[Rfam]
RNA sequence: GAGCUUUGAAGCAAAUGCUAAGUCAAGGUAGUGUUUGUGGAGUUCUGCCAAGGGUUAUAUGUAUACCUCAACUUGAAUAGGCGUAAGCCGAAAGAAAACAUUUAAA
Numbered sequence: 001g002a003g004c005u006u007u008g009a010a011g012c013a014a015a016u017g018c019u020a021a022g023u024c025a026a027g028g029u030a031g032u033g034u035u036u037g038u039g040g041a042g043u044u045c046u047g048c049c050a051a052g053g054g055u056u057a058u059a060u061g062u063a064u065a066c067c068u069c070a071a072c073u074u075g076a077a078u079a080g081g082c083g084u085a086a087g088c089c090g091a092a093a094g095a096a097a098a099c100a101u102u103u104a105a106a
Base pairs, nucleotide, nucleotide: 001045002044003043004042011038012037013036014035015034016033017032018031019030020029023076024075025074026073059101060100061099080089081088082087
Rfam assigns this 106-nucleotide RNA sequence to the family "drum RNA".
The sequence is in the family's curated seed alignment.
It is annotated as a small RNA.